Plastid-ycf3 group II-D1 intron: a 47-nucleotide sequence from Turnera subulata. Rfam's curators write: Plastid rpl16 is a non-coding RNA (ncRNA) recognised in plastids. It was recognised in and intronic region of a ribosome rpl16 gene. The literature on the family includes a 2023 paper in Plant Commun by Richter et al., "Retrograde signaling in plants: A critical review focusing on the GUN pathway and beyond". The family has 385 seed sequences and 1,488 matches in Rfam 15.1. NCBI's taxonomy places the organism under Eukaryota, Embryophyta, Pentapetalae, fabids, Turnera. The base pairs follow the family's consensus structure, which was predicted with LocARNA. A search with the family's covariance model found it, with a score of 60 bits.

RNA sequence: AAACCUUCUAUCGUGUACCCUUGAUUAAUGCAGCCUUAGAUGCUUCA
Numbered sequence: 001a002a003a004c005c006u007u008c009u010a011u012c013g014u015g016u017a018c019c020c021u022u023g024a025u026u027a028a029u030g031c032a033g034c035c036u037u038a039g040a041u042g043c044u045u046c047a
Stems, first nucleotide, its partner, number of pairs: 010025004032044003